[Rfam]
RNA sequence: AGGUUUAUUUCGAAAAUCAGAUUUCGGCCGAAAUUUCGAAAAUUUCAGGUGAAAUUUCAGAUUUCGAAAUUUCGGCCGAAAUCUGAUUUUUUUAAUUU
Numbered sequence: 001a002g003g004u005u006u007a008u009u010u011c012g013a014a015a016a017u018c019a020g021a022u023u024u025c026g027g028c029c030g031a032a033a034u035u036u037c038g039a040a041a042a043u044u045u046c047a048g049g050u051g052a053a054a055u056u057u058c059a060g061a062u063u064u065c066g067a068a069a070u071u072u073c074g075g076c077c078g079a080a081a082u083c084u085g086a087u088u089u090u091u092u093u094a095a096u097u098u
Stems, first nucleotide, its partner, number of pairs: 013090006021082011033070008
The family of this 98-nucleotide RNA from Tetracentron sinense is "mir-283 microRNA precursor family". It scores 51 bits against the family's covariance model. Pairs were carried over by alignment from the consensus structure, which was predicted with WAR. Gene Ontology terms of the family: RISC complex and miRNA-mediated post-transcriptional gene silencing.